This 97-nucleotide RNA sequence from Candidatus Ichthyocystis hellenicum belongs to the Rfam family "Bacterial small signal recognition particle RNA". Taxonomically the source falls in Candidatus Ichthyocystis (Bacteria, Pseudomonadati, Pseudomonadota, Burkholderiales). The base pairs follow the family's consensus structure, which is taken from published work. A search with the family's covariance model found it, with a score of 60 bits. From the family's description: The signal recognition particle (SRP) is a universally conserved ribonucleoprotein involved in the co-translational targeting of proteins to membranes. On this family, see Rosenblad et al., Nucleic Acids Res 2003: "SRPDB: Signal Recognition Particle Database". The family's RNA type in Rfam is non-coding RNA gene.

RNA sequence: CUCGGGCCCCCUCGCGUCAGUGUUUGCCCAUCUGGUCAGAUUCGGAAGAAAGCAGCCAAUGCAAAUUUGCUUGAGUGCCGGGGUAGGGCUCGUUGGU
Numbered sequence: 001c002u003c004g005g006g007c008c009c010c011c012u013c014g015c016g017u018c019a020g021u022g023u024u025u026g027c028c029c030a031u032c033u034g035g036u037c038a039g040a041u042u043c044g045g046a047a048g049a050a051a052g053c054a055g056c057c058a059a060u061g062c063a064a065a066u067u068u069g070c071u072u073g074a075g076u077g078c079c080g081g082g083g084u085a086g087g088g089c090u091c092g093u094u095g096g097u
Stems, first nucleotide, its partner, number of pairs: 004091005010083005015075001017074003020070002022066006033058004041050003